[Rfam]
RNA sequence: AUAAAAGAGGCAGGGAGUUCAAAUUCUUGCCAUUAUCGCGGUAAAGUCUUGGGAGGAUCAGAUCUUAGGCGCGCUUGUCGCAGCCCCUUAAUUGGUGAAGGAUCACGCGAUUAUUAGAACAAGGUCUUCACAGACCUUGUUUUUUUUU
Numbered sequence: 001a002u003a004a005a006a007g008a009g010g011c012a013g014g015g016a017g018u019u020c021a022a023a024u025u026c027u028u029g030c031c032a033u034u035a036u037c038g039c040g041g042u043a044a045a046g047u048c049u050u051g052g053g054a055g056g057a058u059c060a061g062a063u064c065u066u067a068g069g070c071g072c073g074c075u076u077g078u079c080g081c082a083g084c085c086c087c088u089u090a091a092u093u094g095g096u097g098a099a100g101g102a103u104c105a106c107g108c109g110a111u112u113a114u115u116a117g118a119a120c121a122a123g124g125u126c127u128u129c130a131c132a133g134a135c136c137u138u139g140u141u142u143u144u145u146u147u148u
Base pairs, nucleotide, nucleotide: 003148004147005146006145011029012028013027014026015025016024037109038108039107040106046058047057048056049055061104062103063102064101065100068085069084070083071081072080073079086095087094118141119140120139121138122137123136124135125134